Rfam assigns this 109-nucleotide RNA sequence from Thalassobacillus cyri to the family "SAM riboswitch aptamer (S box leader)". The SAM riboswitch is found upstream of a number of genes which code for proteins involved in methionine or cysteine biosynthesis in Gram-positive bacteria. The family's consensus secondary structure is taken from published work. The source organism's lineage runs through Bacteria, Bacillota, Caryophanales, Bacillaceae and Thalassobacillus. It scores 70 bits against the family's covariance model.
[Rfam]
RNA sequence: CUCUUAUCCAGAGUCGGCGGAGGGGACAGGCCCGAUGAAACCUCAGCAACCAUCACGAAUGUGAAAAGGUGCUAACCUGUAGCAAGGAACGAUCCUUGAACGAUAAGAG
Numbered sequence: 001c002u003c004u005u006a007u008c009c010a011g012a013g014u015c016g017g018c019g020g021a022g023g024g025g026a027c028a029g030g031c032c033c034g035a036u037g038a039a040a041c042c043u044c045a046g047c048a049a050c051c052a053u054c055a056c057g058a059a060u061g062u063g064a065a066a067a068g069g070u071g072c073u074a075a076c077c078u079g080u081a082g083c084a085a086g087g088a089a090c091g092a093u094c095c096u097u098g099a100a101c102g103a104u105a106a107g108a109g
Stems, first nucleotide, its partner, number of pairs: 001109008013044001016042002022033003027082001029080001030078001045073004050069002053064003083098006